A member of the RNA family "Small nucleolar RNA Z152/R70/R12/" from Salvia splendens, 97 nucleotides long. The match comes from Rfam's covariance-model search (74 bits). Rfam classes the family as a C/D-box small nucleolar RNA. For this family Rfam cites "Identification of 66 box C/D snoRNAs in Arabidopsis thaliana: extensive gene duplications generated multiple isoforms predicting new ribosomal RNA 2'-O-methylation sites" (Barneche et al., J Mol Biol, 2001). The organism belongs to core Calosphace, within Eukaryota. Rfam 15.1 lists 604 matches to the family in 220 species. The family's consensus secondary structure was predicted with PFOLD.
[Rfam]
RNA sequence: UUUGCAAUGAUGAGAUUAAGCACAAUUCUGUGUUUGGGGCAGUGGAUUCCGAUCCGUGAGCCUAUCUAAUUAACGACUUCUCCUUCCUCUGAGCAAA
Numbered sequence: 001u002u003u004g005c006a007a008u009g010a011u012g013a014g015a016u017u018a019a020g021c022a023c024a025a026u027u028c029u030g031u032g033u034u035u036g037g038g039g040c041a042g043u044g045g046a047u048u049c050c051g052a053u054c055c056g057u058g059a060g061c062c063u064a065u066c067u068a069a070u071u072a073a074c075g076a077c078u079u080c081u082c083c084u085u086c087c088u089c090u091g092a093g094c095a096a097a
Base pairs, nucleotide, nucleotide: 001097002096003095004094005093